[Rfam]
RNA sequence: GUUGAAGCUCCAUCUAUCAAUGGAUAAUACUUCAAUUGAAUGUUAGAUUAUAUGGUUUCUUGAAAAGAAAGGAGCAAUAACCAAUUCUCGAAAUAAUUGGUAUUGCUCCUUUCUU
Numbered sequence: 001g002u003u004g005a006a007g008c009u010c011c012a013u014c015u016a017u018c019a020a021u022g023g024a025u026a027a028u029a030c031u032u033c034a035a036u037u038g039a040a041u042g043u044u045a046g047a048u049u050a051u052a053u054g055g056u057u058u059c060u061u062g063a064a065a066a067g068a069a070a071g072g073a074g075c076a077a078u079a080a081c082c083a084a085u086u087c088u089c090g091a092a093a094u095a096a097u098u099g100g101u102a103u104u105g106c107u108c109c110u111u112u113c114u115u
Base pairs, nucleotide, nucleotide: 009024010023011022012021013020068112069111070110071109072108073107074106075105076104077103078102079101083097086093

This 115-nucleotide sequence belongs to the Rfam family "Plastid-psbA-1 3UTR RNA". Its Rfam clan is "Plastid-psbA 3UTR RNA clan". The base pairs follow the family's consensus structure, which was predicted with LocARNA. The family's RNA type in Rfam is cis-regulatory element. Rfam describes the family as follows. Plastid psbA-1 is a non-coding RNA (ncRNA) present in plastids. It was identified in inverted repeat sequences in the 3 prime untranslate region (3UTR) of photosystem II quinone-binding protein (psbA).